The family of this 143-nucleotide RNA sequence from Rattus norvegicus is "Small nucleolar RNA SNORA48". It scores 73 bits against the family's covariance model. For this family Rfam cites "Mapping to nucleotide resolution of pseudouridine residues in large subunit ribosomal RNAs from representative eukaryotes, prokaryotes, archaebacteria, mitochondria and chloroplasts" (Ofengand and Bakin, J Mol Biol, 1997). The snoRNA ACA 48 has been identified to guide pseudouridylation of the residue U3797 in the 28S rRNA subunit. The family's RNA type in Rfam is H/ACA-box small nucleolar RNA. NCBI's taxonomy places the organism under Eukaryota, Metazoa, Tetrapoda, Muroidea, Rattus.
RNA sequence: UACCCCAGCAAUGGGCAAAGAGACACCUUGUUGUUGGUGUUGUUCUCAUAUCAGUCAGGGGCAGAUCAGAUGGCAGUCCUUUGUUCAUCCUACCUUGAUGCCUGGCUGGGUGGCCAAAGCUGUUCUAUGCCUAGGACAUAUCA
Number, nucleotide and partner (000 for none) at each position: 001u063002a000003c061004c060005c059006c058007a000008g056009c000010a000011a000012u053013g052014g051015g000016c000017a000018a000019a046020g045021a000022g041023a040024c039025a038026c037027c036028u000029u000030g000031u000032u000033g000034u000035u000036g027037g026038u025039g024040u023041u022042g000043u000044u000045c020046u019047c000048a000049u000050a000051u014052c013053a012054g000055u000056c008057a000058g006059g005060g004061g003062c000063a001064g000065a000066u000067c000068a000069g000070a000071u000072g000073g000074c000075a000076g000077u000078c000079c000080u000081u000082u138083g137084u136085u135086c134087a000088u000089c000090c000091u000092a000093c000094c000095u000096u000097g131098a000099u129100g000101c000102c000103u127104g126105g125106c000107u000108g000109g121110g000111u000112g000113g000114c000115c000116a000117a000118a000119g000120c000121u109122g000123u000124u000125c105126u104127a103128u000129g099130c000131c097132u000133a000134g086135g085136a084137c083138a082139u000140a000141u000142c000143a000